[Rfam]
Notes: The record is a 106-nucleotide RNA sequence from Malikia granosa, which matches "SAM-I/IV (S-adenosyl methionine) riboswitch aptamer" in Rfam. It scores 58 bits against the family's covariance model. Rfam links the family to the GO terms regulation of gene expression and S-adenosylmethionine metabolic process.

RNA sequence: UAGAUACAUUCCGAGUCGGGCCUGAUGCCCGCGCCAACCUGCCUCACCGGGGCAAGGUGGUCUGCCAAGUGCGAUGUGGCCUUGCGAGGCAACCAAGCCGGCAGCA
Numbered sequence: 001u002a003g004a005u006a007c008a009u010u011c012c013g014a015g016u017c018g019g020g021c022c023u024g025a026u027g028c029c030c031g032c033g034c035c036a037a038c039c040u041g042c043c044u045c046a047c048c049g050g051g052g053c054a055a056g057g058u059g060g061u062c063u064g065c066c067a068a069g070u071g072c073g074a075u076g077u078g079g080c081c082u083u084g085c086g087a088g089g090c091a092a093c094c095a096a097g098c099c100g101g102c103a104g105c106a
Stems, first nucleotide, its partner, number of pairs: 006077005015032001017031005033061003038057003041053003047100001049098001079090004